[Rfam]
The family of this 154-nucleotide RNA sequence from Tupaia belangeri is "U4 spliceosomal RNA". The family is grouped with related families in Rfam's "U4 clan". Lineage of the source: Eukaryota > Vertebrata > Amniota > Eutheria > Tupaia belangeri. Rfam's curators write: U4 small nuclear RNA (U4 snRNA) is a component of the major U2-dependent spliceosome. It scores 69 bits against the family's covariance model.
RNA sequence: AGCUUUGCACAGUGGCAGUAUCGUAGCCAAUGAGGUUUAUCCGAGGAGCGAUUAUUGCUAAUUGAAAAAAACUCAAAGCUCUCCCACAGACAAUGGACAAGACAGAGAAAAGACAAUCUAGUCUCUUGGUCCAUUAUCUGACAAAAGAGAAUUU
Numbered sequence: 001a002g003c004u005u006u007g008c009a010c011a012g013u014g015g016c017a018g019u020a021u022c023g024u025a026g027c028c029a030a031u032g033a034g035g036u037u038u039a040u041c042c043g044a045g046g047a048g049c050g051a052u053u054a055u056u057g058c059u060a061a062u063u064g065a066a067a068a069a070a071a072c073u074c075a076a077a078g079c080u081c082u083c084c085c086a087c088a089g090a091c092a093a094u095g096g097a098c099a100a101g102a103c104a105g106a107g108a109a110a111a112g113a114c115a116a117u118c119u120a121g122u123c124u125c126u127u128g129g130u131c132c133a134u135u136a137u138c139u140g141a142c143a144a145a146a147g148a149g150a151a152u153u154u
Stems, first nucleotide, its partner, number of pairs: 020052005027046002034042002089131002091128003095124004100119003147154002